[Rfam]
RNA sequence: AAGUGAGAUGAUGGUAUUCCAUCUUUCGGGACUGACCUAAAAAUGGAGACUAUUUGUAACUCUGAUCACUU
Numbered sequence: 001a002a003g004u005g006a007g008a009u010g011a012u013g014g015u016a017u018u019c020c021a022u023c024u025u026u027c028g029g030g031a032c033u034g035a036c037c038u039a040a041a042a043a044u045g046g047a048g049a050c051u052a053u054u055u056g057u058a059a060c061u062c063u064g065a066u067c068a069c070u071u
Stems, first nucleotide, its partner, number of pairs: 001071006

This 71-nucleotide sequence from Ophiophagus hannah belongs to the Rfam family "Small nucleolar RNA SNORD2".
Taxonomically the source falls in Ophiophagus (Eukaryota, Opisthokonta, Vertebrata, Tetrapoda).
By type it is a C/D-box small nucleolar RNA.